A member of the RNA family "tRNA" from Glaesserella parasuis, 74 nucleotides long. It is annotated as a transfer RNA. On this family, see Hou, Trends Biochem Sci 1993: "The tertiary structure of tRNA and the development of the genetic code". Rfam links the family to the GO term triplet codon-amino acid adaptor activity. The organism belongs to Glaesserella parasuis, within Bacteria.
RNA sequence: GGCUACAUAGCUCAGCUGGUUAGAGCACAACACUCAUAAUGUUGGGGUCACAAGUUCGAAUCUCGUUGUAGCCA
Numbered sequence: 001g002g003c004u005a006c007a008u009a010g011c012u013c014a015g016c017u018g019g020u021u022a023g024a025g026c027a028c029a030a031c032a033c034u035c036a037u038a039a040u041g042u043u044g045g046g047g048u049c050a051c052a053a054g055u056u057c058g059a060a061u062c063u064c065g066u067u068g069u070a071g072c073c074a
Base pairs, nucleotide, nucleotide: 001073002072003071004070005069006068007067010026011025012024013023028044029043030042031041032040050066051065053063054062
The base pairs follow the family's consensus structure, which is taken from published work.